The family of this 21-nucleotide sequence from Lasius niger is "Pseudoknot of upstream pseudoknot domain (UPD) of the 3'UTR". Rfam 15.1 lists 17 matches to the family in 17 species. The source organism's lineage runs through Eukaryota, Hexapoda, Formicidae, Formicinae and Lasius. It is annotated as a cis-regulatory element. A reference for the family is Chng et al. (1996), "The complete sequence of a Singapore isolate of odontoglossum ringspot virus and comparison with other tobamoviruses", Gene.

RNA sequence: CGUGGUGCAUUCGAUAAUGCA
Numbered sequence: 001c002g003u004g005g006u007g008c009a010u011u012c013g014a015u016a017a018u019g020c021a
Stems, first nucleotide, its partner, number of pairs: 001013002006021005